Shown here is a 111-nucleotide sequence, a member of the family "IMPDH RNA".
The family's RNA type in Rfam is small RNA.
Rfam's curators put it in the seed alignment.

RNA sequence: AAUAAGAGAUAUCGGGUGCAGGGCCUUCUCCUCCUCCGGCUGUUCUCCUUCACAGUCGUGAUCCAUGUGCCGCACAGGCGGUAUCCCGCUUCGUGUGCAAAAAAGCUCGUC
Numbered sequence: 001a002a003u004a005a006g007a008g009a010u011a012u013c014g015g016g017u018g019c020a021g022g023g024c025c026u027u028c029u030c031c032u033c034c035u036c037c038g039g040c041u042g043u044u045c046u047c048c049u050u051c052a053c054a055g056u057c058g059u060g061a062u063c064c065a066u067g068u069g070c071c072g073c074a075c076a077g078g079c080g081g082u083a084u085c086c087c088g089c090u091u092c093g094u095g096u097g098c099a100a101a102a103a104a105g106c107u108c109g110u111c
Base pairs, nucleotide, nucleotide: 008085009084010083011082012081013080015071016070017069018068019067020066023062025060037058038057039056040055041054042053043052072096073095074094075093076091077090078089079088
Dot-bracket structure: .......((((((.((((((..(.(...........(((((((........))))))).).)...))))))[[[[[[[[))))))..]]]].]]]]...............